[Rfam]
RNA: LOOT RNA
RNA sequence: CGCCUAACCCUUGGUAACCCCCAAGGUAUGGUGCAAAACUCCGCUAAAGUGUAAAAACCUCCUCGUCAGGAGUCACUUUAGCGGUCAUAUCUGGAAACGGGUAUGGGUUUGGUCGAAAGACCAGAUC
Numbered sequence: 001c002g003c004c005u006a007a008c009c010c011u012u013g014g015u016a017a018c019c020c021c022c023a024a025g026g027u028a029u030g031g032u033g034c035a036a037a038a039c040u041c042c043g044c045u046a047a048a049g050u051g052u053a054a055a056a057a058c059c060u061c062c063u064c065g066u067c068a069g070g071a072g073u074c075a076c077u078u079u080a081g082c083g084g085u086c087a088u089a090u091c092u093g094g095a096a097a098c099g100g101g102u103a104u105g106g107g108u109u110u111g112g113u114c115g116a117a118a119g120a121c122c123a124g125a126u127c
Stems, first nucleotide, its partner, number of pairs: 001033004009026006041084011059072005086105008106127009